[Rfam]
RNA sequence: AAGGCCGACUCUGGAGAGCGGUCGCCAUCGGCGACCCACCGAAGGGGCUCAAGCUCUCAGGUGAAAGGACAGAGGGGCGAUG
Number, nucleotide and partner (000 for none) at each position: 001a000002a000003g000004g000005c000006c077007g000008a000009c074010u073011c072012u071013g070014g000015a000016g000017a000018g000019c000020g036021g035022u034023c033024g000025c000026c000027a000028u000029c000030g000031g000032c000033g023034a022035c021036c020037c000038a062039c061040c060041g058042a057043a000044g000045g056046g055047g054048c000049u000050c000051a000052a000053g000054c047055u046056c045057u042058c041059a000060g040061g039062u038063g000064a000065a000066a000067g000068g000069a000070c013071a012072g011073a010074g009075g000076g000077g006078c000079g000080a000081u000082g000
Glycine riboswitch aptamer: an 82-nucleotide sequence from Thiohalospira halophila. This family represents the bacterial glycine riboswitch. Lineage of the source: Bacteria > Gammaproteobacteria > Thiohalospirales > Thiohalospira > Thiohalospira halophila.